[Rfam]
This 139-nucleotide sequence from Citrobacter farmeri belongs to the Rfam family "opuB ncRNA motif". For this family Rfam cites "The discovery of novel noncoding RNAs in 50 bacterial genomes" (Narunsky et al., Nucleic Acids Res, 2024). opuB ncRNA motif was reported as a strong cis regulatory motif candidate, with potential to be a cis regulatory riboswitch type, it have been identified in mostly from species of Enterobacteriaceae. The motif have been recognised mostly downstream-adjacent gene, opuB, annotated as coding for a proline/glycine ABC-transporter, whereas other related genes are known to be relevant to the transport of compatible solutes such as glycine, betaine, and choline of an uncharacterized ABC transporter with strong homology to amino acid transporters. NCBI's taxonomy places the organism under Bacteria, Gammaproteobacteria, Enterobacterales, Enterobacteriaceae, Citrobacter farmeri. Rfam's curators put it in the seed alignment.
RNA sequence: CUAAUUUGCCUUCCCGCUGGAAUCCUUCCCACCCUGUUGCUAUAGCUCAAAACACCCUGCCGAUACAUGGCAUAACAACAUGCGACGAUUAUUCGCCGCCAUAACGCAUGCAAACAGGGAGACACACUGCAAUGCACAC
Number, nucleotide and partner (000 for none) at each position: 001c000002u000003a000004a000005u000006u000007u000008g000009c000010c000011u000012u000013c119014c118015c117016g000017c000018u000019g029020g028021a027022a000023u000024c000025c000026u000027u021028c020029c019030c000031a000032c000033c000034c000035u000036g000037u000038u108039g107040c106041u000042a000043u000044a000045g000046c000047u000048c000049a000050a000051a000052a000053c000054a000055c000056c000057c000058u072059g071060c070061c069062g068063a000064u000065a000066c000067a000068u062069g061070g060071c059072a058073u000074a000075a000076c000077a000078a000079c000080a000081u000082g099083c098084g097085a000086c095087g000088a000089u000090u000091a000092u000093u000094c000095g086096c000097c084098g083099c082100c000101a000102u000103a000104a000105c000106g040107c039108a038109u000110g000111c000112a000113a000114a000115c000116a000117g015118g014119g013120a000121g000122a000123c000124a000125c000126a000127c000128u000129g000130c000131a000132a000133u000134g000135c000136a000137c000138a000139c000